The family of this 232-nucleotide sequence from Clostridioides difficile is "T-box leader". Rfam classes the family as a cis-regulatory leader. NCBI's taxonomy places the organism under Bacteria, Bacillati, Bacillota, Peptostreptococcaceae, Clostridioides.
RNA sequence: UGAAAGGCAUUGAUUAGGAAGAGUAAAUCUGAAUCGAUUACCAGAGAAGGAAACUACUAGCUGAAAUGUUUCCCUAAUUAGAAGGAUUGAAAACUACCUAGGAGCUUCUAUCCGAAGUUAUCUUAAUGAUUUUAGUAGGAAUAGACGUUUUUAUUACUUGCGUUAAAGUAUCAAGUGGAUUUUUUAAAAUCAAUUUGGGUGGAACCGCGGGAAACAGAUUCUCGUCCCUUUU
Numbered sequence: 001u002g003a004a005a006g007g008c009a010u011u012g013a014u015u016a017g018g019a020a021g022a023g024u025a026a027a028u029c030u031g032a033a034u035c036g037a038u039u040a041c042c043a044g045a046g047a048a049g050g051a052a053a054c055u056a057c058u059a060g061c062u063g064a065a066a067u068g069u070u071u072c073c074c075u076a077a078u079u080a081g082a083a084g085g086a087u088u089g090a091a092a093a094c095u096a097c098c099u100a101g102g103a104g105c106u107u108c109u110a111u112c113c114g115a116a117g118u119u120a121u122c123u124u125a126a127u128g129a130u131u132u133u134a135g136u137a138g139g140a141a142u143a144g145a146c147g148u149u150u151u152u153a154u155u156a157c158u159u160g161c162g163u164u165a166a167a168g169u170a171u172c173a174a175g176u177g178g179a180u181u182u183u184u185u186a187a188a189a190u191c192a193a194u195u196u197g198g199g200u201g202g203a204a205c206c207g208c209g210g211g212a213a214a215c216a217g218a219u220u221c222u223c224g225u226c227c228c229u230u231u232u
Stems, first nucleotide, its partner, number of pairs: 007105002015100004026088005037078003049073006108144004112139002146162003178191005197228003207225007
Description
Rfam 15.1 lists 19,395 matches to the family in 1,923 species.